[Rfam]
RNA sequence: AAUUAAAAUUAAUUGUAGCUUCGUAUAACUCCAAUAAUAUGGUUUGGAGGUCUCUACUAGGAACCAUUAAUUCCUAAUUACGAAGAAGAUAUAUCUAUUA
Numbered sequence: 001a002a003u004u005a006a007a008a009u010u011a012a013u014u015g016u017a018g019c020u021u022c023g024u025a026u027a028a029c030u031c032c033a034a035u036a037a038u039a040u041g042g043u044u045u046g047g048a049g050g051u052c053u054c055u056a057c058u059a060g061g062a063a064c065c066a067u068u069a070a071u072u073c074c075u076a077a078u079u080a081c082g083a084a085g086a087a088g089a090u091a092u093a094u095c096u097a098u099u100a
Stems, first nucleotide, its partner, number of pairs: 019085007029049006058076006
The record is a 100-nucleotide RNA sequence from Clostridium saccharoperbutylacetonicum, which matches "Purine riboswitch aptamer" in Rfam. The source organism's lineage runs through Bacteria, Bacillati, Bacillota, Clostridiaceae and Clostridium saccharoperbutylacetonicum N1-4. A search with the family's covariance model found it, with a score of 83 bits.